[Rfam]
RNA sequence: UUCAUCCUUGUCUUUGGGGAGCAAAGUAUUCAAUGAUCGUUUAGUGAGAGUACUGUUGCUGAAACCCAUAACAAAAUAUUUUACCGCAUCCGUAAAUCUGUUAUAUUUACGAGAUGCAAUUUUUGGAUAG
Numbered sequence: 001u002u003c004a005u006c007c008u009u010g011u012c013u014u015u016g017g018g019g020a021g022c023a024a025a026g027u028a029u030u031c032a033a034u035g036a037u038c039g040u041u042u043a044g045u046g047a048g049a050g051u052a053c054u055g056u057u058g059c060u061g062a063a064a065c066c067c068a069u070a071a072c073a074a075a076a077u078a079u080u081u082u083a084c085c086g087c088a089u090c091c092g093u094a095a096a097u098c099u100g101u102u103a104u105a106u107u108u109a110c111g112a113g114a115u116g117c118a119a120u121u122u123u124u125g126g127a128u129a130g
Base pairs, nucleotide, nucleotide: 005019006018007017008016021059022058023057024056025054026053027052028051029050030049031048038044086117087116088115089114090113094108095107096106097105099103

A member of the RNA family "U4atac minor spliceosomal RNA" from Atta cephalotes, 130 nucleotides long. Its family is annotated with U4atac snRNP, pre-mRNA 5'-splice site binding and spliceosomal tri-snRNP complex assembly in the Gene Ontology. NCBI's taxonomy places the organism under Eukaryota, Mandibulata, Apocrita, Attini, Atta.